A member of the RNA family "Bacterial small signal recognition particle RNA" from Arthrobacter sp. FB24, 90 nucleotides long.
The base pairs follow the family's consensus structure, which is taken from published work.
[Rfam]
RNA sequence: GGCCCCUCAUGUGGCGUCAUCCUGUUGAACUCCCCCAGGACCGGAAGGUAGCAAGGGUAAAUGGGCUCUGGCGGGUGCAUGGGGGGUCUU
Numbered sequence: 001g002g003c004c005c006c007u008c009a010u011g012u013g014g015c016g017u018c019a020u021c022c023u024g025u026u027g028a029a030c031u032c033c034c035c036c037a038g039g040a041c042c043g044g045a046a047g048g049u050a051g052c053a054a055g056g057g058u059a060a061a062u063g064g065g066c067u068c069u070g071g072c073g074g075g076u077g078c079a080u081g082g083g084g085g086g087u088c089u090u
Stems, first nucleotide, its partner, number of pairs: 001088011012075001015073005021065006032057003040049003